[Rfam]
RNA sequence: AGAAACUUGAGGAAGGCUGUCCCUAGUACGAGAGGACCGGGACGGACGAACCUCUGGUGUGCCAGUUGUUCCGCCAGGAGCACUGCUGGUUAGCUACGUUCGGAAGGGAUAACCGCUGAAAGCAUCUAAGCGGGAAGCCUGUUCCAAGAUGAGGUUUCUCACCCCCUCGAGGGGGUAAGGCCCCCGGCAGACCACCGGGUUGAUAGGCCAGAACUGGAAGCACAGUAAUGUGUGGAGGUGACUGGUACUAAUAGGCCGAGG
Numbered sequence: 001a002g003a004a005a006c007u008u009g010a011g012g013a014a015g016g017c018u019g020u021c022c023c024u025a026g027u028a029c030g031a032g033a034g035g036a037c038c039g040g041g042a043c044g045g046a047c048g049a050a051c052c053u054c055u056g057g058u059g060u061g062c063c064a065g066u067u068g069u070u071c072c073g074c075c076a077g078g079a080g081c082a083c084u085g086c087u088g089g090u091u092a093g094c095u096a097c098g099u100u101c102g103g104a105a106g107g108g109a110u111a112a113c114c115g116c117u118g119a120a121a122g123c124a125u126c127u128a129a130g131c132g133g134g135a136a137g138c139c140u141g142u143u144c145c146a147a148g149a150u151g152a153g154g155u156u157u158c159u160c161a162c163c164c165c166c167u168c169g170a171g172g173g174g175g176u177a178a179g180g181c182c183c184c185c186g187g188c189a190g191a192c193c194a195c196c197g198g199g200u201u202g203a204u205a206g207g208c209c210a211g212a213a214c215u216g217g218a219a220g221c222a223c224a225g226u227a228a229u230g231u232g233u234g235g236a237g238g239u240g241a242c243u244g245g246u247a248c249u250a251a252u253a254g255g256c257c258g259a260g261g
Stems, first nucleotide, its partner, number of pairs: 001159008011145004017045007047102005055096003062089005067082006106140003113133005162174003176259001179257004183199005204250003207246005213239002220233005
RNA: Bacterial large subunit ribosomal RNA, nucleotides 2861 to 3121